The family of this 175-nucleotide sequence from Herbinix luporum is "Lysine riboswitch aptamer". The match comes from Rfam's covariance-model search (124 bits).
Nucleotides: 175
Base pairs, nucleotide, nucleotide: 006170007169008168009167010166011165016081017080018079019078020077021076022075023074024073032066033065034064035063036062037061038060085113086112087111088110089109090108091107092106093105094104095103096102114140115139117137118136119135120134121133122132123131124130142160143159144158145157146156
Number, partner (000 for none) and nucleotide at each position: 001000g002000c003000u004000u005000g006170a007169g008168g009167u010166a011165g012000a013000g014000g015000c016081g017080c018079a019078a020077u021076a022075u023074u024073c025000a026000a027000g028000a029000g030000u031000a032066c033065a034064c035063u036062g037061u038060u039000u040000g041000a042000u043000a044000u045000u046000u047000c048000a049000g050000g051000g052000a053000u054000a055000g056000a057000u058000g059000a060038g061037g062036c063035a064034g065033u066032g067000g068000a069000a070000a071000g072000g073024g074023g075022a076021u077020g078019u079018u080017g081016c082000c083000g084000a085113a086112g087111u088110g089109a090108u091107a092106a093105u094104a095103a096102u097000c098000c099000u100000g101000a102096g103095u104094u105093a106092u107091u108090a109089u110088c111087g112086c113085u114140g115139g116000g117137c118136a119135u120134a121133u122132g123131g124130u125000g126000a127000a128000u129000a130124a131123c132122c133121a134120u135119g136118u137117g138000a139115c140114u141000g142160u143159c144158a145157u146156c147000a148000u149000g150000u151000g152000a153000a154000u155000g156146g157145a158144u159143g160142g161000a162000g163000u164000g165011c166010u167009g168008c169007c170006u171000a172000a173000a174000g175000a